[Rfam]
RNA sequence: UUUUACUAAUUUCGGUUUAGAGUCUGAAAAACUCAAAUAGUUUUGUGUUGUCAUCAGCUUCUUCUCAUGCAUUUUUUUACGAGAUUGGAGUUAAAUAACAGCACUAAAAUU
Numbered sequence: 001u002u003u004u005a006c007u008a009a010u011u012u013c014g015g016u017u018u019a020g021a022g023u024c025u026g027a028a029a030a031a032c033u034c035a036a037a038u039a040g041u042u043u044u045g046u047g048u049u050g051u052c053a054u055c056a057g058c059u060u061c062u063u064c065u066c067a068u069g070c071a072u073u074u075u076u077u078u079a080c081g082a083g084a085u086u087g088g089a090g091u092u093a094a095a096u097a098a099c100a101g102c103a104c105u106a107a108a109a110u111u
Stems, first nucleotide, its partner, number of pairs: 045104006056092006063084004
RNA: Small nucleolar RNA snoR97